Rfam assigns this 115-nucleotide sequence from Chanos chanos to the family "Small nucleolar RNA U6-53/MBII-28". It is annotated as a C/D-box small nucleolar RNA. The pairing is the family consensus, mapped onto this sequence. For this family Rfam cites "RNomics: an experimental approach that identifies 201 candidates for novel, small, non-messenger RNAs in mouse" (Huttenhofer et al., EMBO J, 2001).
RNA sequence: UUCCCAUGAUGAGCCAGCCAUGCUAAUACUGAUGCACCAGUCAGACCGUGUGUCUCUCUGGGUGUGUGUGAGUUAAACUCAGCUUCUCACACUUACACAGUGUGCUCUGAGGAAA
Numbered sequence: 001u002u003c004c005c006a007u008g009a010u011g012a013g014c015c016a017g018c019c020a021u022g023c024u025a026a027u028a029c030u031g032a033u034g035c036a037c038c039a040g041u042c043a044g045a046c047c048g049u050g051u052g053u054c055u056c057u058c059u060g061g062g063u064g065u066g067u068g069u070g071a072g073u074u075a076a077a078c079u080c081a082g083c084u085u086c087u088c089a090c091a092c093u094u095a096c097a098c099a100g101u102g103u104g105c106u107c108u109g110a111g112g113a114a115a
Stems, first nucleotide, its partner, number of pairs: 001114004043055004
NCBI's taxonomy places the organism under Eukaryota, Bilateria, Deuterostomia, Gonorynchiformes, Chanos. Rfam links the family to the GO terms RNA processing and nucleolus.